[Rfam]
Overview: A member of the RNA family "mir-9193 microRNA precursor family" from Myotis myotis, 75 nucleotides long. The family has 2 seed sequences and 6,008 matches in Rfam 15.1. NCBI's taxonomy places the organism under Eukaryota, Vertebrata, Eutheria, Yangochiroptera, Myotis. Pairs were carried over by alignment from the consensus structure, which was predicted with RNAalifold. It scores 58 bits against the family's covariance model.
RNA sequence: CUCGGAGGUGGGGGUGGUCCCUCAGCUGGAUUGUGAGAGGGCGCAGGCCAGGAUGAGGGAGCCCACCUGUGCAAG
Numbered sequence: 001c002u003c004g005g006a007g008g009u010g011g012g013g014g015u016g017g018u019c020c021c022u023c024a025g026c027u028g029g030a031u032u033g034u035g036a037g038a039g040g041g042c043g044c045a046g047g048c049c050a051g052g053a054u055g056a057g058g059g060a061g062c063c064c065a066c067c068u069g070u071g072c073a074a075g
Stems, first nucleotide, its partner, number of pairs: 004072001006070001010068003014064001016062001018060007026052002028049002031046005